[Rfam]
The record is a 164-nucleotide RNA from Neoundibacterium piscinae, which matches "FMN riboswitch aptamer (RFN element)" in Rfam. Lineage of the source: Bacteria > Betaproteobacteria > Burkholderiales > Oxalobacteraceae > Neoundibacterium. Pairs were carried over by alignment from the consensus structure, which is taken from published work.
RNA sequence: GUACGUCUUCAGGGCGGGGUGUAAUUCCCCACCGGCGGUAAAACUCGGCACAGUUGUAGUCUGUCGGGACAAGCCCGCGAGCGCUUGCAAGCGUUUUUGCAAGGUCAGCAGAUCUGGUGUGAUUCCAGGGCCGACGGUCAUAGUCCGGAUGAGAGAAGAUGCGC
Numbered sequence: 001g002u003a004c005g006u007c008u009u010c011a012g013g014g015c016g017g018g019g020u021g022u023a024a025u026u027c028c029c030c031a032c033c034g035g036c037g038g039u040a041a042a043a044c045u046c047g048g049c050a051c052a053g054u055u056g057u058a059g060u061c062u063g064u065c066g067g068g069a070c071a072a073g074c075c076c077g078c079g080a081g082c083g084c085u086u087g088c089a090a091g092c093g094u095u096u097u098u099g100c101a102a103g104g105u106c107a108g109c110a111g112a113u114c115u116g117g118u119g120u121g122a123u124u125c126c127a128g129g130g131c132c133g134a135c136g137g138u139c140a141u142a143g144u145c146c147g148g149a150u151g152a153g154a155g156a157a158g159a160u161g162c163g164c
Base pairs, nucleotide, nucleotide: 004161005160006159007158008157009156010155017029018028019027031144032143033133034132035078036077037076038075073131074130081109082108113129114128115127116126117125135147136146137145